The family of this 116-nucleotide sequence from Vibrio renipiscarius is "Glycine riboswitch aptamer".
RNA sequence: AUGAAGGCUGCAGGAGAGCGGUUAUUAACCAAAUGGUAACAUUUGAGCGUAAUAACCUACCGAAGAAGUAAAUCUUUCAGGUGCCACCUUAGGGUAGCGAGGACUGUAGUUGGAGG
Numbered sequence: 001a002u003g004a005a006g007g008c009u010g011c012a013g014g015a016g017a018g019c020g021g022u023u024a025u026u027a028a029c030c031a032a033a034u035g036g037u038a039a040c041a042u043u044u045g046a047g048c049g050u051a052a053u054a055a056c057c058u059a060c061c062g063a064a065g066a067a068g069u070a071a072a073u074c075u076u077u078c079a080g081g082u083g084c085c086a087c088c089u090u091a092g093g094g095u096a097g098c099g100a101g102g103a104c105u106g107u108a109g110u111u112g113g114a115g116g
Stems, first nucleotide, its partner, number of pairs: 006111008020057008059082003062078002066076003